[Rfam]
RNA sequence: GCUUAUUCUCAGGGCGGGGUGGAAAUCCCCACCGGCGGUAAAUCAUUAAGCCUGAUGGCGAGAUGAAAGCCCGCGAGCGCUUGAAUCUGAUGAAAGUUAGCUUCAAGGUCAGCAGAUCCGGUGUAAUUCCGGGGCCGACGGUUAUAGUCCGGAUGGGAGAGAGUAAUG
Numbered sequence: 001g002c003u004u005a006u007u008c009u010c011a012g013g014g015c016g017g018g019g020u021g022g023a024a025a026u027c028c029c030c031a032c033c034g035g036c037g038g039u040a041a042a043u044c045a046u047u048a049a050g051c052c053u054g055a056u057g058g059c060g061a062g063a064u065g066a067a068a069g070c071c072c073g074c075g076a077g078c079g080c081u082u083g084a085a086u087c088u089g090a091u092g093a094a095a096g097u098u099a100g101c102u103u104c105a106a107g108g109u110c111a112g113c114a115g116a117u118c119c120g121g122u123g124u125a126a127u128u129c130c131g132g133g134g135c136c137g138a139c140g141g142u143u144a145u146a147g148u149c150c151g152g153a154u155g156g157g158a159g160a161g162a163g164u165a166a167u168g
Stems, first nucleotide, its partner, number of pairs: 003166008017029003031148002033137002035074004069135002077113002117133005139151003
The record is a 168-nucleotide RNA sequence from Limnobaculum parvum, which matches "FMN riboswitch aptamer (RFN element)" in Rfam. The match comes from Rfam's covariance-model search (116 bits). The RFN element is a highly conserved domain that is found frequently in the 5'-untranslated regions of prokaryotic mRNAs that encode for flavin mononucleotide (FMN) biosynthesis and transport proteins. This element is a metabolite-dependent riboswitch that directly binds FMN in the absence of proteins. In Bacillus subtilis, the riboswitch most likely controls gene expression by causing premature transcription termination within the 5' untranslated region of the ribDEAHT operon and precluding access to the ribosome-binding site of ypaA mRNA.The FMN riboswitch structure, reported in present an FMN-bound six-stem junction, adopts a butterfly-like scaffold, stapled together by opposingly directed but nearly identically folded peripheral domains. Taxonomically the source falls in Limnobaculum (Bacteria, Pseudomonadati, Enterobacterales, Budviciaceae).